A member of the RNA family "Ribosomal protein L10 leader" from Leptolyngbya boryana, 146 nucleotides long. The match comes from Rfam's covariance-model search (79 bits). By type it is a cis-regulatory leader. The source organism's lineage runs through Bacteria, Cyanobacteriota, Leptolyngbyales, Leptolyngbyaceae and Leptolyngbya boryana. Rfam's curators write: This family is a putative r-protein leader autoregulatory structure found in B. subtilis and other low-GC Gram-positive bacteria. Rfam links the family to the GO term regulation of gene expression.

[Rfam]
RNA sequence: UUCAACUGAAUAUCCAAACCAAAGACAGCAGGUGGUUAAAGCCUUAAUGUCCUGCCGAGGUUUGAUUUUUCCAGACACUUUCGAGUGUUCUUUAGAAAUCAUGCGAACUCGGCUUUCUCUUAAAGUCGAGUUUUUUGUUUUUGGAU
Number, nucleotide and partner (000 for none) at each position: 001u000002u000003c000004a000005a000006c000007u000008g000009a000010a000011u000012a000013u000014c000015c000016a000017a000018a000019c000020c000021a000022a000023a000024g000025a000026c000027a000028g055029c054030a053031g052032g051033u000034g043035g042036u041037u000038a000039a000040a000041g036042c035043c034044u000045u000046a000047a000048u000049g000050u000051c032052c031053u030054g029055c028056c000057g000058a000059g000060g000061u000062u000063u000064g000065a000066u000067u000068u000069u000070u000071c000072c000073a000074g000075a000076c000077a000078c000079u000080u000081u000082c000083g000084a000085g000086u000087g000088u000089u000090c000091u000092u000093u000094a000095g000096a000097a000098a000099u000100c000101a000102u000103g000104c000105g000106a000107a131108c130109u129110c128111g127112g126113c125114u124115u123116u122117c000118u000119c000120u000121u000122a116123a115124a114125g113126u112127c111128g110129a109130g108131u107132u000133u000134u000135u000136u000137g000138u000139u000140u000141u000142u000143g000144g000145a000146u000